RNA sequence: UAGAGGAGGAAGGCAAAUGCGAAGCAUUUCUUUCAUGCCUUCCGACGACUUGCCCUCGAACCGCAGGUGAGGGGGCGCUACCUUAA
Numbered sequence: 001u002a003g004a005g006g007a008g009g010a011a012g013g014c015a016a017a018u019g020c021g022a023a024g025c026a027u028u029u030c031u032u033u034c035a036u037g038c039c040u041u042c043c044g045a046c047g048a049c050u051u052g053c054c055c056u057c058g059a060a061c062c063g064c065a066g067g068u069g070a071g072g073g074g075g076c077g078c079u080a081c082c083u084u085a086a
Base pairs, nucleotide, nucleotide: 008043009042010041011040012039013038016028017027018026019025052076053075054074056072057071060068061067
Shown here is an 86-nucleotide RNA sequence from Schaedlerella arabinosiphila, a member of the family "GA-cis RNA". The family's consensus secondary structure is taken from published work. The organism belongs to Schaedlerella, within Bacteria. By type it is a small RNA. It scores 66 bits against the family's covariance model.